[Rfam]
RNA sequence: GCGCCCGUCAUUGGGGAGUAGCCGGUUUCUGGGUUGUAUCAGCCAGAAACGCCCGUAUCAACAUACUCGUUUUGUUGUUAAAACGUGGUGCGGGUAGCCAGGAAAGGUUGGCGAGACCAUAGGCACGUGACUCCGUCGUAUGGUUGGGGGUGGGUUACGUGUAUAUGGAGGCUCCCGGCCGA
Numbered sequence: 001g002c003g004c005c006c007g008u009c010a011u012u013g014g015g016g017a018g019u020a021g022c023c024g025g026u027u028u029c030u031g032g033g034u035u036g037u038a039u040c041a042g043c044c045a046g047a048a049a050c051g052c053c054c055g056u057a058u059c060a061a062c063a064u065a066c067u068c069g070u071u072u073u074g075u076u077g078u079u080a081a082a083a084c085g086u087g088g089u090g091c092g093g094g095u096a097g098c099c100a101g102g103a104a105a106g107g108u109u110g111g112c113g114a115g116a117c118c119a120u121a122g123g124c125a126c127g128u129g130a131c132u133c134c135g136u137c138g139u140a141u142g143g144u145u146g147g148g149g150g151u152g153g154g155u156u157a158c159g160u161g162u163a164u165a166u167g168g169a170g171g172c173u174c175c176c177g178g179c180c181g182a
Base pairs, nucleotide, nucleotide: 025050026049027048028047029046030045031044032043051095052094053093054092055091056090057089058088059087060086068085069084070083071082072081073080074079